A member of the RNA family "mir-2788 microRNA precursor family" from Psylliodes chrysocephalus, 91 nucleotides long. Rfam links the family to the GO terms RISC complex and miRNA-mediated post-transcriptional gene silencing. The base pairs follow the family's consensus structure, which was predicted with RNAalifold. NCBI's taxonomy places the organism under Eukaryota, Arthropoda, Pancrustacea, Cucujiformia, Psylliodes.

[Rfam]
RNA sequence: GUAAGCUAAUGCGCAGUUUUGGGGUUUCUUAGCGACAUUUGCCAGUAUUUGAUUGCAAUGCCCUUGGAAAUCCCAAACAUGUUCAUUUUUA
Numbered sequence: 001g002u003a004a005g006c007u008a009a010u011g012c013g014c015a016g017u018u019u020u021g022g023g024g025u026u027u028c029u030u031a032g033c034g035a036c037a038u039u040u041g042c043c044a045g046u047a048u049u050u051g052a053u054u055g056c057a058a059u060g061c062c063c064u065u066g067g068a069a070a071u072c073c074c075a076a077a078c079a080u081g082u083u084c085a086u087u088u089u090u091a
Base pairs, nucleotide, nucleotide: 008087009086010085011084013082014081015080020075021074022073023072024071025070026069027068028067031064032063034062036060037059038058040057041056042055